[Rfam]
RNA sequence: CGAUGGGGUAGAGGCGCAGGAUUCAAGAGUAAGCUAUGUGAGGAUGACAACAGAGAGCAUGGCCGAAAGGGGAAACUGCCGAAGCAAGUUGAUUAGUCAAAAAUGAAUUUGCUGGGGUUGUUUUAAAUAAAAGCAACACUGUCAUUAUAAGAGGUUCUUAUAAUGAGGAGCUACAGGUCGU
Numbered sequence: 001c002g003a004u005g006g007g008g009u010a011g012a013g014g015c016g017c018a019g020g021a022u023u024c025a026a027g028a029g030u031a032a033g034c035u036a037u038g039u040g041a042g043g044a045u046g047a048c049a050a051c052a053g054a055g056a057g058c059a060u061g062g063c064c065g066a067a068a069g070g071g072g073a074a075a076c077u078g079c080c081g082a083a084g085c086a087a088g089u090u091g092a093u094u095a096g097u098c099a100a101a102a103a104u105g106a107a108u109u110u111g112c113u114g115g116g117g118u119u120g121u122u123u124u125a126a127a128u129a130a131a132a133g134c135a136a137c138a139c140u141g142u143c144a145u146u147a148u149a150a151g152a153g154g155u156u157c158u159u160a161u162a163a164u165g166a167g168g169a170g171c172u173a174c175a176g177g178u179c180g181u
Base pairs, nucleotide, nucleotide: 008174009173010172011171016079017078018077019076022073023072024071033063034062035061036060037059038058039057083113084112085111086110087109088108089107090106092104093103094102114140115139117137118136119135120134121133122132123131124130142166143165144164145163146162147161148160149159150158
RNA: Lysine riboswitch aptamer